Notes
Shown here is a 90-nucleotide RNA from Camphora micrantha, a member of the family "Small nucleolar RNA U61". The family's consensus secondary structure was predicted with WAR. The family's RNA type in Rfam is C/D-box small nucleolar RNA. It scores 67 bits against the family's covariance model. Taxonomically the source falls in Camphora (Eukaryota, Euphyllophyta, Spermatophyta, Laurales). For this family Rfam cites "Plant snoRNA database" (Brown et al., Nucleic Acids Res, 2003).
[Rfam]
RNA sequence: UCGCGGUGAUGAAAAUCUGUUUAGUGUCCCAGAGAGAAGAAUUUGCUUCUUUCAUGAUGGCAACACAACCCUCUAAGAAGUUCUGAGCGA
Numbered sequence: 001u002c003g004c005g006g007u008g009a010u011g012a013a014a015a016u017c018u019g020u021u022u023a024g025u026g027u028c029c030c031a032g033a034g035a036g037a038a039g040a041a042u043u044u045g046c047u048u049c050u051u052u053c054a055u056g057a058u059g060g061c062a063a064c065a066c067a068a069c070c071c072u073c074u075a076a077g078a079a080g081u082u083c084u085g086a087g088c089g090a
Stems, first nucleotide, its partner, number of pairs: 001090004